[Rfam]
Small nucleolar RNA SNORD46: a 106-nucleotide sequence from Astyanax mexicanus.

RNA sequence: CAUGUGAGUGAUGUAAAAACGUCCUUAGGUUGGUCUUUUUGGCCGUUUUGGUCCAAAGCUUUUGACCUUCCAAUGUUAGGAUUCGUCAUAGUUACACUGACACAUG
Dot-bracket structure: ((((((..............................................................................................))))))
Numbered sequence: 001c002a003u004g005u006g007a008g009u010g011a012u013g014u015a016a017a018a019a020c021g022u023c024c025u026u027a028g029g030u031u032g033g034u035c036u037u038u039u040u041g042g043c044c045g046u047u048u049u050g051g052u053c054c055a056a057a058g059c060u061u062u063u064g065a066c067c068u069u070c071c072a073a074u075g076u077u078a079g080g081a082u083u084c085g086u087c088a089u090a091g092u093u094a095c096a097c098u099g100a101c102a103c104a105u106g
Stems, first nucleotide, its partner, number of pairs: 001106006
By type it is a C/D-box small nucleolar RNA.
About the family: U40 is a C/D box small nucleolar RNA, also known as snoZ153 in plants.